Background:
Rfam assigns this 69-nucleotide sequence from Actinoplanes regularis to the family "ASpks TB sRNA".

[Rfam]
RNA sequence: CUUGAGCGAGCCCAGCCAGGCGGGUUCGGCGCGUCCCUUGCCGUAGGUGGCGAGCAGCGCCUGGGCCUC
Number, nucleotide and partner (000 for none) at each position: 001c000002u000003u000004g000005a000006g000007c000008g000009a000010g000011c000012c000013c000014a000015g021016c020017c000018a000019g000020g016021c015022g000023g000024g000025u000026u064027c063028g000029g000030c000031g000032c059033g058034u000035c000036c000037c054038u053039u052040g000041c050042c049043g048044u000045a000046g000047g000048u043049g042050g041051c000052g039053a038054g037055c000056a000057g000058c033059g032060c000061c000062u000063g027064g026065g000066c000067c000068u000069c000
By type it is an antisense RNA. The source organism's lineage runs through Bacteria, Bacillati, Micromonosporales, Micromonosporaceae and Actinoplanes.